RNA: Fluoride riboswitch aptamer (crcB RNA motif)
RNA sequence: AUACGUUCAGGCUAUGGCAUUAGCCUUGGCACAGGCCUAGACCGCCCCUUUUGCAGAAGAGGUGCUGAUAAUGCCUACCAGAAA
Numbered sequence: 001a002u003a004c005g006u007u008c009a010g011g012c013u014a015u016g017g018c019a020u021u022a023g024c025c026u027u028g029g030c031a032c033a034g035g036c037c038u039a040g041a042c043c044g045c046c047c048c049u050u051u052u053g054c055a056g057a058a059g060a061g062g063u064g065c066u067g068a069u070a071a072u073g074c075c076u077a078c079c080a081g082a083a084a
Stems, first nucleotide, its partner, number of pairs: 010025004016075006044065002047062006